Overview:
The family of this 107-nucleotide RNA from Cephalotus follicularis is "Plant small nucleolar RNA R71". Rfam classes the family as a C/D-box small nucleolar RNA. Taxonomically the source falls in Cephalotus (Eukaryota, Tracheophyta, Pentapetalae, rosids). On this family, see Brown et al., Trends Plant Sci 2003: "Plant snoRNAs: functional evolution and new modes of gene expression".

RNA sequence: AGUCCAUGGUGAGGGCAUUGUUGGAGAAAGUCUUUGAAUCACUCCAUGAGUUUGGAGAAUGAUUCAUUUGGCUUUUGCCUAAAUUGAAUAAUGUCAUUUCUGAUUUU
Numbered sequence: 001a002g003u004c005c006a007u008g009g010u011g012a013g014g015g016c017a018u019u020g021u022u023g024g025a026g027a028a029a030g031u032c033u034u035u036g037a038a039u040c041a042c043u044c045c046a047u048g049a050g051u052u053u054g055g056a057g058a059a060u061g062a063u064u065c066a067u068u069u070g071g072c073u074u075u076u077g078c079c080u081a082a083a084u085u086g087a088a089u090a091a092u093g094u095c096a097u098u099u100c101u102g103a104u105u106u107u
Base pairs, nucleotide, nucleotide: 001107005102006101057074058073060071